[Rfam]
RNA sequence: UGACAGGCUAGGAUGGCCCCCGAAAAGCCGCAACCCUGGCGGCCUGCCUGUCAGUUUUCAUUGCAGGG
Numbered sequence: 001u002g003a004c005a006g007g008c009u010a011g012g013a014u015g016g017c018c019c020c021c022g023a024a025a026a027g028c029c030g031c032a033a034c035c036c037u038g039g040c041g042g043c044c045u046g047c048c049u050g051u052c053a054g055u056u057u058u059c060a061u062u063g064c065a066g067g068g
Base pairs, nucleotide, nucleotide: 001053002052003051004050005049006048007047008046011021012020027043028042029041030040031039034068035067036066037065038064
This 68-nucleotide RNA from Desulfobulbus propionicus belongs to the Rfam family "int-alpA RNA".
It scores 52 bits against the family's covariance model.
From the family's description: Acidobacteria (1 example), Planctomycetes (1 example), Proteobacteria.